The family of this 81-nucleotide RNA from Geobacter argillaceus is "c-di-GMP-I riboswitch aptamer". Its family is annotated with cyclic-di-GMP binding in the Gene Ontology. The base pairs follow the family's consensus structure, which is taken from published work.
RNA sequence: UCACCGAACGGGCAAACCCAUGGGUAACCUGGGGACGCAAAGCCACCUGUCCAGCUUAGGCUGGAAAGAGGGGUUGUCGAA
Numbered sequence: 001u002c003a004c005c006g007a008a009c010g011g012g013c014a015a016a017c018c019c020a021u022g023g024g025u026a027a028c029c030u031g032g033g034g035a036c037g038c039a040a041a042g043c044c045a046c047c048u049g050u051c052c053a054g055c056u057u058a059g060g061c062u063g064g065a066a067a068g069a070g071g072g073g074u075u076g077u078c079g080a081a
Stems, first nucleotide, its partner, number of pairs: 012038002017033004022029002041075004046071003050065006